Bacterial RNase P class A: a 391-nucleotide RNA sequence from Iodidimonas gelatinilytica. Rfam classes the family as a ribozyme. Pairs were carried over by alignment from the consensus structure, which is taken from published work. Lineage of the source: Bacteria > Pseudomonadati > Iodidimonadales > Iodidimonadaceae > Iodidimonas.
RNA sequence: UCAGAUGGCCGGGCGGCCGCGCGAUCCUUUUAUGAGGAUUUCGAGGAAAGUCCGGGCUCCACGGAGAUACGGUGCCGGGUAACGCCCGGCGAAGGCAACUUCAGGGAUAGUGCCACAGAAAGCAAACCGCCCGGCCUGCCGCAUUUGCGGGUCACAUGCCGGGUAAGGGUGAAAGGGUGCGGUAAGAGCGCACCGCCGGUCUGGUAACAGAGCGGGCAUGGUAAACCCCACCGGGAGCAAGAUCGAAUAGGGACGACGAAUGGCCGUGUCUUUGGGCUGUCGUCCGGGUUGAUCGCUUGAGGCUGCCGGCAACGGUAGCCCUAGAGGAAUGGUCGCCACUUCGCGUUUAUGCGCGAAUGUACAGAACCCGGCUUAUAGGCCAUCUGACGCC
Dot-bracket structure: ((((((((((((((((((.((.((((((......)))))).))....[[[.[[[[[((((....[[[[.((((((((((.....)))))(((((....)))).)((...(((((............(((((((((.(..................).)))))))..)).......((((((.......))))))((((.((((....)))).))).)..)))..)))))))))))))...((((......((((((.....((((..]]]]...)))).)))))).....))))......((((((((....))))))))..........))))))).............................]]]]]]]].).))))))))))....
Numbered sequence: 001u002c003a004g005a006u007g008g009c010c011g012g013g014c015g016g017c018c019g020c021g022c023g024a025u026c027c028u029u030u031u032a033u034g035a036g037g038a039u040u041u042c043g044a045g046g047a048a049a050g051u052c053c054g055g056g057c058u059c060c061a062c063g064g065a066g067a068u069a070c071g072g073u074g075c076c077g078g079g080u081a082a083c084g085c086c087c088g089g090c091g092a093a094g095g096c097a098a099c100u101u102c103a104g105g106g107a108u109a110g111u112g113c114c115a116c117a118g119a120a121a122g123c124a125a126a127c128c129g130c131c132c133g134g135c136c137u138g139c140c141g142c143a144u145u146u147g148c149g150g151g152u153c154a155c156a157u158g159c160c161g162g163g164u165a166a167g168g169g170u171g172a173a174a175g176g177g178u179g180c181g182g183u184a185a186g187a188g189c190g191c192a193c194c195g196c197c198g199g200u201c202u203g204g205u206a207a208c209a210g211a212g213c214g215g216g217c218a219u220g221g222u223a224a225a226c227c228c229c230a231c232c233g234g235g236a237g238c239a240a241g242a243u244c245g246a247a248u249a250g251g252g253a254c255g256a257c258g259a260a261u262g263g264c265c266g267u268g269u270c271u272u273u274g275g276g277c278u279g280u281c282g283u284c285c286g287g288g289u290u291g292a293u294c295g296c297u298u299g300a301g302g303c304u305g306c307c308g309g310c311a312a313c314g315g316u317a318g319c320c321c322u323a324g325a326g327g328a329a330u331g332g333u334c335g336c337c338a339c340u341u342c343g344c345g346u347u348u349a350u351g352c353g354c355g356a357a358u359g360u361a362c363a364g365a366a367c368c369c370g371g372c373u374u375a376u377a378g379g380c381c382a383u384c385u386g387a388c389g390c391c
Stems, first nucleotide, its partner, number of pairs: 001387010011376001012337007020043002023040006048374003052371005057237004065271004070233005075089005090104001091102004105228002110226002112222003127168002129164007137156001176194006195217001196215003200211004241294004251285006262278004301320008